[Rfam]
RNA: mir-19 microRNA precursor family
Organism: Herpetotheres cachinnans
RNA sequence: GAUUACAGUCAGUUUUGCAGGUUUGCAUCCCAGCUUACUAGAAUUGCUGUGCAAAUCCAUGCAGGGGGGGCUGUGGUG
Numbered sequence: 001g002a003u004u005a006c007a008g009u010c011a012g013u014u015u016u017g018c019a020g021g022u023u024u025g026c027a028u029c030c031c032a033g034c035u036u037a038c039u040a041g042a043a044u045u046g047c048u049g050u051g052c053a054a055a056u057c058c059a060u061g062c063a064g065g066g067g068g069g070g071c072u073g074u075g076g077u078g
Stems, first nucleotide, its partner, number of pairs: 003076008013066007020058002022055007032048003